[Rfam]
RNA sequence: UGGCGCCCAACGGUGUGGCUUCGGAUACGGGGAAAUUCGCGAGGGAAGAGGCGUGUAAGUGUUCGGCUGAAGGAAAAAAAAAAAGUGAAAGUGAAAGACAGUUUGACAAAGUUCGCCACGGGAGCCUGCCGCGCCAUUCUUAAAGGUACAGUAGUGCCUAACUAUGGGACAAGGAUUAAGUAAGCAUAAAGUUUUUGUUAAGCAAUUAAAAGAAGCUUUAAAGACACAGGGAGUAAAGGUUAAGAGUAAUGAUAUUUUUAAGUUUUUUCACCUUAUUAAGGACACCUGUCUGU
Numbered sequence: 001u002g003g004c005g006c007c008c009a010a011c012g013g014u015g016u017g018g019c020u021u022c023g024g025a026u027a028c029g030g031g032g033a034a035a036u037u038c039g040c041g042a043g044g045g046a047a048g049a050g051g052c053g054u055g056u057a058a059g060u061g062u063u064c065g066g067c068u069g070a071a072g073g074a075a076a077a078a079a080a081a082a083a084a085g086u087g088a089a090a091g092u093g094a095a096a097g098a099c100a101g102u103u104u105g106a107c108a109a110a111g112u113u114c115g116c117c118a119c120g121g122g123a124g125c126c127u128g129c130c131g132c133g134c135c136a137u138u139c140u141u142a143a144a145g146g147u148a149c150a151g152u153a154g155u156g157c158c159u160a161a162c163u164a165u166g167g168g169a170c171a172a173g174g175a176u177u178a179a180g181u182a183a184g185c186a187u188a189a190a191g192u193u194u195u196u197g198u199u200a201a202g203c204a205a206u207u208a209a210a211a212g213a214a215g216c217u218u219u220a221a222a223g224a225c226a227c228a229g230g231g232a233g234u235a236a237a238g239g240u241u242a243a244g245a246g247u248a249a250u251g252a253u254a255u256u257u258u259u260a261a262g263u264u265u266u267u268u269c270a271c272c273u274u275a276u277u278a279a280g281g282a283c284a285c286c287u288g289u290c291u292g293u
Stems, first nucleotide, its partner, number of pairs: 006032003013028003037051002040048001102144002111139001113136001117133001119131003152172001154170002157168004177220003180216002228268007237255001239253004278293001280291004
Dot-bracket structure: .....(((....(((..........))).)))....((.(.......).))..................................................((.......(.(...(.(((.......))).)..)..)...)).......(.((.((((....)))))).)....(((((.................................)).))).......(((((((..(.((((.......)))).)......))))))).........(.((((....)))).)
The family of this 293-nucleotide sequence from Sciurus vulgaris is "Mason-Pfizer monkey virus packaging signal". The family's consensus secondary structure was predicted with PFOLD. Rfam classes the family as a cis-regulatory element. The match comes from Rfam's covariance-model search (153 bits). This family represents a group of sequences that are related to the Mason-Pfizer monkey virus (MPMV) packaging signal. The packaging signal is located in the 5' UTR and is required for specific RNA encapsidation. NCBI's taxonomy places the organism under Eukaryota, Amniota, Boreoeutheria, Sciuromorpha, Sciurus.